[Rfam]
RNA sequence: AUCACCUCUGGGCCUUUUGGCUAAGAUCAAGUGUAGUAUCUGUUCUUAUCAGUUUAAUAUCUGACACAUCCUCUAUCUGAGGACAUUAUAUUAAGUGUAUUUUUGGAAUAGGGAGAUGGACCAGGAGCUUGCUGUGUCCACUCCACCCAUCGACCUGGUAUUGCAAUACCUCCGGGAACAGUGCACCAAAA
Numbered sequence: 001a002u003c004a005c006c007u008c009u010g011g012g013c014c015u016u017u018u019g020g021c022u023a024a025g026a027u028c029a030a031g032u033g034u035a036g037u038a039u040c041u042g043u044u045c046u047u048a049u050c051a052g053u054u055u056a057a058u059a060u061c062u063g064a065c066a067c068a069u070c071c072u073c074u075a076u077c078u079g080a081g082g083a084c085a086u087u088a089u090a091u092u093a094a095g096u097g098u099a100u101u102u103u104u105g106g107a108a109u110a111g112g113g114a115g116a117u118g119g120a121c122c123a124g125g126a127g128c129u130u131g132c133u134g135u136g137u138c139c140a141c142u143c144c145a146c147c148c149a150u151c152g153a154c155c156u157g158g159u160a161u162u163g164c165a166a167u168a169c170c171u172c173c174g175g176g177a178a179c180a181g182u183g184c185a186c187c188a189a190a191a
Stems, first nucleotide, its partner, number of pairs: 007026003011022004047066001049064004069083005112144004118138002124135001126133002148183003152179001154176005
Rfam assigns this 191-nucleotide sequence from Myotis myotis to the family "U2 spliceosomal RNA". The literature on the family includes a 1997 paper in Nucleic Acids Res by Zwieb, "The uRNA database". The family's consensus secondary structure is taken from published work. Its Rfam clan is "U2 clan".